[Rfam]
RNA: L31-Actinobacteria ribosomal protein leader
RNA sequence: UCGGCCCCGGUUCACGGAUGCGCAAAUCCGCGCGUACGACCCGGCGCC
Numbered sequence: 001u002c003g004g005c006c007c008c009g010g011u012u013c014a015c016g017g018a019u020g021c022g023c024a025a026a027u028c029c030g031c032g033c034g035u036a037c038g039a040c041c042c043g044g045c046g047c048c
Base pairs, nucleotide, nucleotide: 003048004047005046007044008043009042010041015038016037018035019034020033021032022031023030